This 98-nucleotide RNA from Paenibacillus albidus belongs to the Rfam family "Glycine riboswitch aptamer".
About the family: This family represents the bacterial glycine riboswitch. Glycine riboswitches usually consist of two metabolite-binding aptamers domains with similar structures in tandem.
The pairing is the family consensus, mapped onto this sequence.
A reference for the family is Babina et al. (2017), "In Vivo Behavior of the Tandem Glycine Riboswitch in Bacillus subtilis", MBio.
A search with the family's covariance model found it, with a score of 72 bits.
Its family is annotated with glycine biosynthetic process in the Gene Ontology.

RNA sequence: AUGAUGGCAUAGGGAGAGACUGUCUCUACAGAAGACGGCGCCGAAGGAGUAAACCCGGGACGGGUGAAUCUCUCAGGCAAAAGGACCUUUGCCGGACG
Numbered sequence: 001a002u003g004a005u006g007g008c009a010u011a012g013g014g015a016g017a018g019a020c021u022g023u024c025u026c027u028a029c030a031g032a033a034g035a036c037g038g039c040g041c042c043g044a045a046g047g048a049g050u051a052a053a054c055c056c057g058g059g060a061c062g063g064g065u066g067a068a069u070c071u072c073u074c075a076g077g078c079a080a081a082a083g084g085a086c087c088u089u090u091g092c093c094g095g096a097c098g
Stems, first nucleotide, its partner, number of pairs: 006093004011088003020038004040078003043074002047072003053065002